[Rfam]
RNA sequence: AGACAUUCGAAAGUUCAGGUCCGUAAGCCCGAACUUUCGCUCCUGGGUUCUCCUGGCGCGUUGCGAAGCCGCGGAUGAUCCUCCCUCGUCCGUAGGUAAUGCGCCUACCUCGCCUCGCUCGUCUAGCGGCCAGCGAGGCUUUUU
Numbered sequence: 001a002g003a004c005a006u007u008c009g010a011a012a013g014u015u016c017a018g019g020u021c022c023g024u025a026a027g028c029c030c031g032a033a034c035u036u037u038c039g040c041u042c043c044u045g046g047g048u049u050c051u052c053c054u055g056g057c058g059c060g061u062u063g064c065g066a067a068g069c070c071g072c073g074g075a076u077g078a079u080c081c082u083c084c085c086u087c088g089u090c091c092g093u094a095g096g097u098a099a100u101g102c103g104c105c106u107a108c109c110u111c112g113c114c115u116c117g118c119u120c121g122u123c124u125a126g127c128g129g130c131c132a133g134c135g136a137g138g139c140u141u142u143u144u
Stems, first nucleotide, its partner, number of pairs: 055105008071093007112139008
The record is a 144-nucleotide RNA sequence from Rhizobium tibeticum, which matches "Rhizobiales sRNA Atu_C7" in Rfam. It scores 53 bits against the family's covariance model. The source organism's lineage runs through Bacteria, Alphaproteobacteria, Hyphomicrobiales, Rhizobiaceae and Rhizobium. It is annotated as a small RNA. A reference for the family is Wilms et al. (2012), "Deep sequencing uncovers numerous small RNAs on all four replicons of the plant pathogen Agrobacterium tumefaciens", RNA Biol.